RNA sequence: AAGCGCUGAAGCAUAACAGCGUACCGGAAAGCCUUGUUAUGCGAAGCUUUCGAGAGGGGUUGGGCAGCGAAACCUCAAACCGGAGUAGGCAUUAGCCGAAAGAAAAUGCCAUUA
Numbered sequence: 001a002a003g004c005g006c007u008g009a010a011g012c013a014u015a016a017c018a019g020c021g022u023a024c025c026g027g028a029a030a031g032c033c034u035u036g037u038u039a040u041g042c043g044a045a046g047c048u049u050u051c052g053a054g055a056g057g058g059g060u061u062g063g064g065c066a067g068c069g070a071a072a073c074c075u076c077a078a079a080c081c082g083g084a085g086u087a088g089g090c091a092u093u094a095g096c097c098g099a100a101a102g103a104a105a106a107u108g109c110c111a112u113u114a
Stems, first nucleotide, its partner, number of pairs: 001049004011042009021032002024083004064109003088097003
RNA: drum RNA